[Rfam]
RNA: Iron response element I
RNA sequence: UUUUCCUGCUUCAACAGUGCUUGAAUGGACCUG
Numbered sequence: 001u002u003u004u005c006c007u008g009c010u011u012c013a014a015c016a017g018u019g020c021u022u023g024a025a026u027g028g029a030c031c032u033g
Base pairs, nucleotide, nucleotide: 001033003029005028006027008026010025011024012023013022014021015019